[Rfam]
This 73-nucleotide RNA from Janibacter sp. HTCC2649 belongs to the Rfam family "tRNA". Its family is annotated with triplet codon-amino acid adaptor activity in the Gene Ontology. By type it is a transfer RNA.

RNA sequence: GCCCCCGUGGCGCAACGGAUAGCGCAGCGGCCUUCUAAUCCGCAGGCUGCAGGUUCGAGUCCUGCCGGGGGCA
Numbered sequence: 001g002c003c004c005c006c007g008u009g010g011c012g013c014a015a016c017g018g019a020u021a022g023c024g025c026a027g028c029g030g031c032c033u034u035c036u037a038a039u040c041c042g043c044a045g046g047c048u049g050c051a052g053g054u055u056c057g058a059g060u061c062c063u064g065c066c067g068g069g070g071g072c073a
Stems, first nucleotide, its partner, number of pairs: 001072007010025004027043004049065005